[Rfam]
RNA sequence: GGAAGUGAUGUUGUAAUUUGCGCCAGACAGUGGAUCGUGGGAACAGACUGCCAUCUGUUCUUAACCACGCCACUUGGUUGACGAAAAACUCACAUCUGAUCC
Numbered sequence: 001g002g003a004a005g006u007g008a009u010g011u012u013g014u015a016a017u018u019u020g021c022g023c024c025a026g027a028c029a030g031u032g033g034a035u036c037g038u039g040g041g042a043a044c045a046g047a048c049u050g051c052c053a054u055c056u057g058u059u060c061u062u063a064a065c066c067a068c069g070c071c072a073c074u075u076g077g078u079u080g081a082c083g084a085a086a087a088a089c090u091c092a093c094a095u096c097u098g099a100u101c102c
Stems, first nucleotide, its partner, number of pairs: 001102003021083002024080001030073004040066002042059005
RNA: Small nucleolar RNA SNORD16